[Rfam]
RNA: Small nucleolar RNA SNORA31
RNA sequence: AUGCAUCUAUUUGACAGACCUGGAGCUGUUAACUGUCUGCUGGUAAGGUUCCAGGGCAAAUGCAAGAAAAAAGGGUCCUCAUGUUUUCUUUCUGUCUGACUGUGGCAGCCAAGAUUGAAUGGGGGAAUACAGUG
Numbered sequence: 001a002u003g004c005a006u007c008u009a010u011u012u013g014a015c016a017g018a019c020c021u022g023g024a025g026c027u028g029u030u031a032a033c034u035g036u037c038u039g040c041u042g043g044u045a046a047g048g049u050u051c052c053a054g055g056g057c058a059a060a061u062g063c064a065a066g067a068a069a070a071a072a073g074g075g076u077c078c079u080c081a082u083g084u085u086u087u088c089u090u091u092c093u094g095u096c097u098g099a100c101u102g103u104g105g106c107a108g109c110c111a112a113g114a115u116u117g118a119a120u121g122g123g124g125g126a127a128u129a130c131a132g133u134g
Base pairs, nucleotide, nucleotide: 002064003063004062005061006060008058011054012053017050018049019048020047024041025040026039028037029035076126077125078124079123080122084117087114088113089112090111092108093107094106095105096104